Streptomyces-metK RNA: a 113-nucleotide RNA from Streptomyces malaysiense. The match comes from Rfam's covariance-model search (101 bits). The family's RNA type in Rfam is small RNA.
RNA sequence: GCGAGACAGUGGCCCAUCGGCCGAGCGCGACCGAUAAACUGUCGAAGGUCGACCGGGCGCAGCCCCGCGUCGACUGCAAAUGAUCAGCCAGCAGCCGCUGCAACCACAGGGAG
Numbered sequence: 001g002c003g004a005g006a007c008a009g010u011g012g013c014c015c016a017u018c019g020g021c022c023g024a025g026c027g028c029g030a031c032c033g034a035u036a037a038a039c040u041g042u043c044g045a046a047g048g049u050c051g052a053c054c055g056g057g058c059g060c061a062g063c064c065c066c067g068c069g070u071c072g073a074c075u076g077c078a079a080a081u082g083a084u085c086a087g088c089c090a091g092c093a094g095c096c097g098c099u100g101c102a103a104c105c106a107c108a109g110g111g112a113g
Stems, first nucleotide, its partner, number of pairs: 047075006054067004089100004